[Rfam]
RNA sequence: GGCGUCCGAGGAUAGAGUAAGUCGCCAGUCGGCGGCUGGUCGAGAAAUUCUCC
Numbered sequence: 001g002g003c004g005u006c007c008g009a010g011g012a013u014a015g016a017g018u019a020a021g022u023c024g025c026c027a028g029u030c031g032g033c034g035g036c037u038g039g040u041c042g043a044g045a046a047a048u049u050c051u052c053c
Stems, first nucleotide, its partner, number of pairs: 020037007